[Rfam]
RNA sequence: UUAAAAGCUAUGAUAGAAAUAGUAGUAAUGCAAAUCCCUAUUCAAGAGAGCUGGUGGUAGGUGGAAACCAGUAUAUAUUUGCUUGCGAAUUACAAUUCUGGAGCAUUCUUAAUGAGCCAAAUAGGUGAAAUUAAGACGGUGUAGUCAUCGUUAACAACCCCAAAGUGGCAAUUUCAAUUGCAACAAGGGUGGUACCGCGUGUUAAAACUCGUCCCUUUA
Numbered sequence: 001u002u003a004a005a006a007g008c009u010a011u012g013a014u015a016g017a018a019a020u021a022g023u024a025g026u027a028a029u030g031c032a033a034a035u036c037c038c039u040a041u042u043c044a045a046g047a048g049a050g051c052u053g054g055u056g057g058u059a060g061g062u063g064g065a066a067a068c069c070a071g072u073a074u075a076u077a078u079u080u081g082c083u084u085g086c087g088a089a090u091u092a093c094a095a096u097u098c099u100g101g102a103g104c105a106u107u108c109u110u111a112a113u114g115a116g117c118c119a120a121a122u123a124g125g126u127g128a129a130a131u132u133a134a135g136a137c138g139g140u141g142u143a144g145u146c147a148u149c150g151u152u153a154a155c156a157a158c159c160c161c162a163a164a165g166u167g168g169c170a171a172u173u174u175c176a177a178u179u180g181c182a183a184c185a186a187g188g189g190u191g192g193u194a195c196c197g198c199g200u201g202u203u204a205a206a207a208c209u210c211g212u213c214c215c216u217u218u219a
Base pairs, nucleotide, nucleotide: 007104008103015099016098017097018096025086026085027084030082031081039075040074041073050072051071052070053069054068055067107136108135109134110133111132112131113130137150138149139148168181169180170179171178172177186216187215188214189213197212198211199210201208
The record is a 219-nucleotide sequence from Ornithinibacillus bavariensis, which matches "T-box leader" in Rfam. Gene Ontology term of the family: tRNA binding. The match comes from Rfam's covariance-model search (134 bits). Rfam classes the family as a cis-regulatory leader.